[Rfam]
RNA sequence: GCCCUGUGAAAGACAUGGGUAGUGAGAUGUGAACAUUCGACACCUCUCUACUCUGUCUUUCGUCACGGA
Numbered sequence: 001g002c003c004c005u006g007u008g009a010a011a012g013a014c015a016u017g018g019g020u021a022g023u024g025a026g027a028u029g030u031g032a033a034c035a036u037u038c039g040a041c042a043c044c045u046c047u048c049u050a051c052u053c054u055g056u057c058u059u060u061c062g063u064c065a066c067g068g069a
Base pairs, nucleotide, nucleotide: 008061009060010059011058012057013056014055015054017053018052019051021049022048024046025045026044028042029041
This 69-nucleotide RNA from Dimorphilus gyrociliatus belongs to the Rfam family "mir-71 microRNA precursor family". Lineage of the source: Eukaryota > Opisthokonta > Lophotrochozoa > Annelida > Dimorphilus. Rfam 15.1 lists 372 matches to the family in 291 species. A reference for the family is Li et al. (2009), "Direct sequencing and expression analysis of a large number of miRNAs in Aedes aegypti and a multi-species survey of novel mosquito miRNAs", BMC Genomics. It scores 61 bits against the family's covariance model. Rfam links the family to the GO terms RISC complex and miRNA-mediated post-transcriptional gene silencing. Pairs were carried over by alignment from the consensus structure, which was predicted with RNAalifold.